[Rfam]
RNA sequence: UCUCCCUGUUGCACAUUGCCUUGUCUGUGAAGGGCACAAAGGGAUCAAUUUUAAUAUAUAUAAAUAUAUAUAUAUAUAUAUAUAUUUAUAUAUAUUAAAAUUGAUCCCUUUGUGCCCUUCACAGACAAGGCAAUGUGCAACAG
Number, nucleotide and partner (000 for none) at each position: 001u000002c000003u000004c000005c000006c000007u000008g000009u000010u000011g138012c137013a136014c135015a134016u000017u000018g000019c130020c129021u128022u127023g126024u125025c124026u123027g122028u121029g120030a119031a118032g117033g116034g115035c114036a113037c112038a111039a110040a109041g108042g107043g106044a105045u104046c103047a102048a101049u100050u000051u000052u000053a000054a000055u000056a000057u000058a000059u000060a000061u000062a000063a000064a000065u000066a000067u000068a000069u000070a000071u000072a000073u000074a000075u000076a000077u000078a000079u000080a000081u000082a000083u000084a000085u000086u000087u000088a000089u000090a000091u000092a000093u000094a000095u000096u000097a000098a000099a000100a049101u048102u047103g046104a045105u044106c043107c042108c041109u040110u039111u038112g037113u036114g035115c034116c033117c032118u031119u030120c029121a028122c027123a026124g025125a024126c023127a022128a021129g020130g019131c000132a000133a000134u015135g014136u013137g012138c011139a000140a000141c000142a000143g000
Rfam assigns this 143-nucleotide RNA from Heterocephalus glaber to the family "Wolbachia sRNA 46". By type it is a small RNA. The pairing is the family consensus, mapped onto this sequence. Rfam 15.1 lists 237 matches to the family in 34 species. The match comes from Rfam's covariance-model search (67 bits).